[Rfam]
RNA: Bacillus-plasmid RNA
RNA sequence: UGUGUCAACGGUAAAUCGCAAGACCGGAAGGUCGAGAAUUUAAGGAGUUGACACACUCACUACA
Dot-bracket structure: (((((((((.....................................))))))))).........